[Rfam]
RNA: Small nucleolar RNA snoR100
RNA sequence: CAAUGAAGGAAGCAUGGUAAUGUGCACAGAAAUUGAAUUAAGUUUCUAGGCCUGCCCUCUCUGAUGCCAUUUGGCUUUGAUUUGGGGGCAUAGUUCCGCUGCAAAACA
Numbered sequence: 001c002a003a004u005g006a007a008g009g010a011a012g013c014a015u016g017g018u019a020a021u022g023u024g025c026a027c028a029g030a031a032a033u034u035g036a037a038u039u040a041a042g043u044u045u046c047u048a049g050g051c052c053u054g055c056c057c058u059c060u061c062u063g064a065u066g067c068c069a070u071u072u073g074g075c076u077u078u079g080a081u082u083u084g085g086g087g088g089c090a091u092a093g094u095u096c097c098g099c100u101g102c103a104a105a106a107c108a
Stems, first nucleotide, its partner, number of pairs: 012025004040091001042089003050081001052079001054075003